Bacterial RNase P class A: a 415-nucleotide RNA from Nocardioides euryhalodurans. Pairs were carried over by alignment from the consensus structure, which is taken from published work. The organism belongs to Nocardioides, within Bacteria.
[Rfam]
RNA sequence: CGGGCUGACCGGGCGACCGCGUCGCGCUCCUCCGGGAGCGCGCCGAGGAAGGUCCGGGCUCCACAGGGCAAGGUGGUGGGUAACUCCCACCCGGGGCAACCUGCGGGACAGUGCCACAGAGAACAGACCGCCACUUCCGCUGCUGGUCAGGGGAAGGGGCAAGGGUGAAACGGUGGUGCAAGAGACCACCAGCGGUCCGGGUGACCGGGCCGGCUAGGCAAACCCCACCUGGAGCAAGGUCAAGAAGUCCGGGGCCACGGCCCCGGACGCGCGUGCGUCUGAGGGCGGCCCGCCCGAGCACGCGGGUAGACCGCUGGAGGCGGCCGGCAACGGUCGUCCUAGAUGGAUGGUCGCCCCCGUCGUACGGGACUCCCGUACGACGGGACAGGACCCGGCCUACAGGUCAGCCCGUCCG
Numbered sequence: 001c002g003g004g005c006u007g008a009c010c011g012g013g014c015g016a017c018c019g020c021g022u023c024g025c026g027c028u029c030c031u032c033c034g035g036g037a038g039c040g041c042g043c044c045g046a047g048g049a050a051g052g053u054c055c056g057g058g059c060u061c062c063a064c065a066g067g068g069c070a071a072g073g074u075g076g077u078g079g080g081u082a083a084c085u086c087c088c089a090c091c092c093g094g095g096g097c098a099a100c101c102u103g104c105g106g107g108a109c110a111g112u113g114c115c116a117c118a119g120a121g122a123a124c125a126g127a128c129c130g131c132c133a134c135u136u137c138c139g140c141u142g143c144u145g146g147u148c149a150g151g152g153g154a155a156g157g158g159g160c161a162a163g164g165g166u167g168a169a170a171c172g173g174u175g176g177u178g179c180a181a182g183a184g185a186c187c188a189c190c191a192g193c194g195g196u197c198c199g200g201g202u203g204a205c206c207g208g209g210c211c212g213g214c215u216a217g218g219c220a221a222a223c224c225c226c227a228c229c230u231g232g233a234g235c236a237a238g239g240u241c242a243a244g245a246a247g248u249c250c251g252g253g254g255c256c257a258c259g260g261c262c263c264c265g266g267a268c269g270c271g272c273g274u275g276c277g278u279c280u281g282a283g284g285g286c287g288g289c290c291c292g293c294c295c296g297a298g299c300a301c302g303c304g305g306g307u308a309g310a311c312c313g314c315u316g317g318a319g320g321c322g323g324c325c326g327g328c329a330a331c332g333g334u335c336g337u338c339c340u341a342g343a344u345g346g347a348u349g350g351u352c353g354c355c356c357c358c359g360u361c362g363u364a365c366g367g368g369a370c371u372c373c374c375g376u377a378c379g380a381c382g383g384g385a386c387a388g389g390a391c392c393c394g395g396c397c398u399a400c401a402g403g404u405c406a407g408c409c410c411g412u413c414c415g
Stems, first nucleotide, its partner, number of pairs: 001411010011400001012355007020045002023042006050398003054395005059234004066291004071230005076090005091105001092103004106225002111223002113219003128164002130160003134156005172190006192214001193212008238312004271303006283295004319338008